[Rfam]
RNA sequence: AAACGAGUUAAUCUCAUCCUAAUCUGGUCGCAUCACAAAACUUACCUGCUACCGAUUUGGCUUGGGAUUGACUCGUUG
Numbered sequence: 001a002a003a004c005g006a007g008u009u010a011a012u013c014u015c016a017u018c019c020u021a022a023u024c025u026g027g028u029c030g031c032a033u034c035a036c037a038a039a040a041c042u043u044a045c046c047u048g049c050u051a052c053c054g055a056u057u058u059g060g061c062u063u064g065g066g067a068u069u070g071a072c073u074c075g076u077u078g
Stems, first nucleotide, its partner, number of pairs: 003076006010069007018060002021057004026053003030049002

A member of the RNA family "mir-259 microRNA precursor family" from Caenorhabditis brenneri, 78 nucleotides long. It scores 87 bits against the family's covariance model. A reference for the family is Ambros et al. (2003), "MicroRNAs and other tiny endogenous RNAs in C. elegans", Curr Biol. Taxonomically the source falls in Caenorhabditis (Eukaryota, Metazoa, Chromadorea, Rhabditomorpha). Pairs were carried over by alignment from the consensus structure, which was predicted with RNAalifold.